Shown here is an 86-nucleotide sequence from Solanum tuberosum, a member of the family "MIR8024 microRNA precursor family". Pairs were carried over by alignment from the consensus structure, which was predicted with RNAalifold. NCBI's taxonomy places the organism under Eukaryota, Embryophyta, asterids, lamiids, Solanum. It scores 73 bits against the family's covariance model.
[Rfam]
RNA sequence: UUGAAGAAUUUGAAGACUUCAACUGAUAUACUUGGAUAUUUUGAAGACUUCAACUUACAUAUUUGGAGAUUUUGAAAACUUCAUCU
Numbered sequence: 001u002u003g004a005a006g007a008a009u010u011u012g013a014a015g016a017c018u019u020c021a022a023c024u025g026a027u028a029u030a031c032u033u034g035g036a037u038a039u040u041u042u043g044a045a046g047a048c049u050u051c052a053a054c055u056u057a058c059a060u061a062u063u064u065g066g067a068g069a070u071u072u073u074g075a076a077a078a079c080u081u082c083a084u085c086u
Stems, first nucleotide, its partner, number of pairs: 002083005009076006017068005027057002032053005